[Rfam]
RNA sequence: UCGUCAGUGAGGUACGUCCUGACCUGCCCCCCCUUGCGGGCAGCACGUGAUGAGCGGGCUUGAUGACGCGUGAUUACGUCACGUCCCGGGGCGGGGCCGGCAUCGAUGCAACAACCGCCGCGUCCCCGCCCAGAGUCUCUGAC
Numbered sequence: 001u002c003g004u005c006a007g008u009g010a011g012g013u014a015c016g017u018c019c020u021g022a023c024c025u026g027c028c029c030c031c032c033c034u035u036g037c038g039g040g041c042a043g044c045a046c047g048u049g050a051u052g053a054g055c056g057g058g059c060u061u062g063a064u065g066a067c068g069c070g071u072g073a074u075u076a077c078g079u080c081a082c083g084u085c086c087c088g089g090g091g092c093g094g095g096g097c098c099g100g101c102a103u104c105g106a107u108g109c110a111a112c113a114a115c116c117g118c119c120g121c122g123u124c125c126c127c128g129c130c131c132a133g134a135g136u137c138u139c140u141g142a143c
Base pairs, nucleotide, nucleotide: 024043025042026041028040029039030038032036065082068079069078070077071076089131090130091129092128093127094126095125

Shown here is a 143-nucleotide RNA from Rhinopomastus cyanomelas, a member of the family "U8 small nucleolar RNA". Rfam links the family to the GO terms RNA processing and nucleolus. The literature on the family includes a 2001 paper in Gene by Peculis et al., "The U8 snoRNA gene family: identification and characterization of distinct, functional U8 genes in Xenopus". The source organism's lineage runs through Eukaryota, Opisthokonta, Saurischia, Neoaves and Rhinopomastus. The family's consensus secondary structure is taken from published work.